[Rfam]
RNA: mir-574 microRNA precursor family
Nucleotides: 081
Base pairs, nucleotide, nucleotide: 008073009072010071011070013068014067015066016065017064018063019062020061022059024057025056027054028053032049033048034047035046
Number, partner (000 for none) and nucleotide at each position: 001000a002000g003000g004000c005000c006000c007000a008073g009072a010071g011070a012000c013068a014067g015066a016065g017064g018063c019062a020061g021000g022059g023000u024057c025056u026000a027054a028053u029000c030000c031000a032049c033048a034047g035046c036000c037000u038000u039000c040000a041000u042000g043000g044000c045000a046035g047034c048033u049032g050000u051000u052000a053028a054027u055000c056025a057024g058000c059022c060000c061020u062019u063018g064017c065016c066015u067014c068013u069000c070011u071010c072009u073008u074000u075000c076000u077000c078000u079000c080000c081000a